[Rfam]
RNA sequence: GCUGGACUUGGCCGGGAAGCCAGGCACUUCCUGUUACCCGAAGCCUAAAUGCGGGGGCGACAGCCGGUUGAGGGCAACCAGGCCUCCAUAGGGUCCCUGUGGAAGCAAUGAAUCUCUGUCCUCCUUGGUCCUGGGUUUAUGCGUGCAUUUCCAAAGGGAGAUGCAUGCAUAAUCUGUCCGGUGAACCCGCCAGGCCCGGAAGGGAGCAACGGUGGCUGGAACCAAGGAUGCUAGGAGGGUGCGGGGACGAGUGGAAGCAGGGGGCAGCCCUAUGGGCGCCUGGUCCGAUUCCGGCGUGUCCAGCA
Numbered sequence: 001g002c003u004g005g006a007c008u009u010g011g012c013c014g015g016g017a018a019g020c021c022a023g024g025c026a027c028u029u030c031c032u033g034u035u036a037c038c039c040g041a042a043g044c045c046u047a048a049a050u051g052c053g054g055g056g057g058c059g060a061c062a063g064c065c066g067g068u069u070g071a072g073g074g075c076a077a078c079c080a081g082g083c084c085u086c087c088a089u090a091g092g093g094u095c096c097c098u099g100u101g102g103a104a105g106c107a108a109u110g111a112a113u114c115u116c117u118g119u120c121c122u123c124c125u126u127g128g129u130c131c132u133g134g135g136u137u138u139a140u141g142c143g144u145g146c147a148u149u150u151c152c153a154a155a156g157g158g159a160g161a162u163g164c165a166u167g168c169a170u171a172a173u174c175u176g177u178c179c180g181g182u183g184a185a186c187c188c189g190c191c192a193g194g195c196c197c198g199g200a201a202g203g204g205a206g207c208a209a210c211g212g213u214g215g216c217u218g219g220a221a222c223c224a225a226g227g228a229u230g231c232u233a234g235g236a237g238g239g240u241g242c243g244g245g246g247a248c249g250a251g252u253g254g255a256a257g258c259a260g261g262g263g264g265c266a267g268c269c270c271u272a273u274g275g276g277c278g279c280c281u282g283g284u285c286c287g288a289u290u291c292c293g294g295c296g297u298g299u300c301c302a303g304c305a
Stems, first nucleotide, its partner, number of pairs: 001304007009060001011058003014032006037055004063295005073286002079282003085276010096264003100260001102258001106254001108252002113247007120238006127232002131227002134223002137172016177220006187212003195204003
Overview: The family of this 305-nucleotide sequence from Picrophilus oshimae is "Archaeal signal recognition particle RNA". By type it is a non-coding RNA gene. On this family, see Wild et al., Curr Opin Struct Biol 2002: "Towards the structure of the mammalian signal recognition particle". It is one of the family's seed sequences. Its Rfam clan is "SRP clan". Taxonomically the source falls in Picrophilus oshimae (Archaea, Thermoplasmatota, Thermoplasmatales, Picrophilaceae). Pairs were carried over by alignment from the consensus structure, which is taken from published work.